[Rfam]
RNA sequence: UCACCCGCUUCACCUCCCUGAGCGGGUGCUUCUUCAAGAGGCGUUUCGAGCCCACGGCUUCCAUCCCCUUUGGCCGUGGGCUUUUUUCU
Dot-bracket structure: ...((((((...........)))))).((((((...)))))).......((((((((((............))))))))))........
RNA: Burkholderia RNA 7 (anti-hemB)
Organism: Methyloversatilis sp. RAC08